[Rfam]
RNA sequence: GCGAUUUAAAGGCAAAUGGAAGGAGACUUCCGGACGCAAAGCCGAGGGCCCUAACCAUAAAGAGGAAGGGUGGCCGGGUUGCAUCG
Numbered sequence: 001g002c003g004a005u006u007u008a009a010a011g012g013c014a015a016a017u018g019g020a021a022g023g024a025g026a027c028u029u030c031c032g033g034a035c036g037c038a039a040a041g042c043c044g045a046g047g048g049c050c051c052u053a054a055c056c057a058u059a060a061a062g063a064g065g066a067a068g069g070g071u072g073g074c075c076g077g078g079u080u081g082c083a084u085c086g
Stems, first nucleotide, its partner, number of pairs: 012037002017032006040080004046075002048071003055065002058062001
The record is an 86-nucleotide RNA sequence from Nitrosomonas sp. Nm84, which matches "c-di-GMP-I riboswitch aptamer" in Rfam. The family's consensus secondary structure is taken from published work. The match comes from Rfam's covariance-model search (55 bits).